[Rfam]
RNA sequence: UUAUUUCACUAGGGGAGUCGGCCGACUGAGACGGAGCUUCAAGCUCCGGACCCUUGGAACCUGAUCUGGAUCAUACCAGCGGAGGGAAGUGGAGCAGAAUUUUC
Number, nucleotide and partner (000 for none) at each position: 001u000002u000003a000004u000005u000006u092007c091008a090009c089010u088011a054012g053013g052014g051015g000016a000017g026018u025019c024020g000021g000022c000023c000024g019025a018026c017027u000028g000029a000030g000031a000032c000033g047034g046035a045036g044037c043038u000039u000040c000041a000042a000043g037044c036045u035046c034047c033048g000049g000050a000051c014052c013053c012054u011055u000056g000057g000058a000059a000060c085061c084062u083063g000064a000065u000066c079067u078068g077069g076070a000071u000072c000073a000074u000075a000076c069077c068078a067079g066080c000081g000082g000083a062084g061085g060086g000087a000088a010089g009090u008091g007092g006093a000094g000095c000096a000097g000098a000099a000100u000101u000102u000103u000104c000